[Rfam]
RNA sequence: GGGACCGAAGCGGAAAUCCUUUCUCAAUUUGAGAAAGAUUGCAGCGUAGGGCCCG
Numbered sequence: 001g002g003g004a005c006c007g008a009a010g011c012g013g014a015a016a017u018c019c020u021u022u023c024u025c026a027a028u029u030u031g032a033g034a035a036a037g038a039u040u041g042c043a044g045c046g047u048a049g050g051g052c053c054c055g
Stems, first nucleotide, its partner, number of pairs: 001054003005050002010045002015040004021035005
The record is a 55-nucleotide RNA, which matches "Flavo-1 RNA" in Rfam. By type it is a small RNA. The sequence is in the family's curated seed alignment.